Rfam assigns this 226-nucleotide RNA from Streptomyces galilaeus to the family "Streptomyces sRNA 4677".
NCBI's taxonomy places the organism under Bacteria, Bacillati, Actinomycetota, Kitasatosporales, Streptomyces.
The family has 12 seed sequences and 563 matches in Rfam 15.1.
RNA sequence: GGGUCCGGUGGGCCCCUGACCUCCUUAAAGAACCAGGGAAAGAACUACCCACCCACCCACCCUCCCCGCGCCGGGGAGGCCGCCUCACCCGUCCGAGUGACCAGCUUGCCGAGGCGGGGCGCGGGCCGUUACGUUCGCCGCGACAACCGAAGAAGUAAGACGGCCCCCGGCCGGGACUGGCAUCCCGAGCGAGGGCCUGACCGAUCAGGAAGAAAGCACCUUCCCA
Numbered sequence: 001g002g003g004u005c006c007g008g009u010g011g012g013c014c015c016c017u018g019a020c021c022u023c024c025u026u027a028a029a030g031a032a033c034c035a036g037g038g039a040a041a042g043a044a045c046u047a048c049c050c051a052c053c054c055a056c057c058c059a060c061c062c063u064c065c066c067c068g069c070g071c072c073g074g075g076g077a078g079g080c081c082g083c084c085u086c087a088c089c090c091g092u093c094c095g096a097g098u099g100a101c102c103a104g105c106u107u108g109c110c111g112a113g114g115c116g117g118g119g120c121g122c123g124g125g126c127c128g129u130u131a132c133g134u135u136c137g138c139c140g141c142g143a144c145a146a147c148c149g150a151a152g153a154a155g156u157a158a159g160a161c162g163g164c165c166c167c168c169g170g171c172c173g174g175g176a177c178u179g180g181c182a183u184c185c186c187g188a189g190c191g192a193g194g195g196c197c198u199g200a201c202c203g204a205u206c207a208g209g210a211a212g213a214a215a216g217c218a219c220c221u222u223c224c225c226a
Base pairs, nucleotide, nucleotide: 011072012071013070085100086099087098088097090095113139114138115137116136117135162197163196164195165194166193168191169190171189173186174185175184176183208224209223210222211221212220
A reference for the family is Hindra et al. (2014), "Complex intra-operonic dynamics mediated by a small RNA in Streptomyces coelicolor", PLoS One. The base pairs follow the family's consensus structure. The family's RNA type in Rfam is small RNA. A search with the family's covariance model found it, with a score of 75 bits.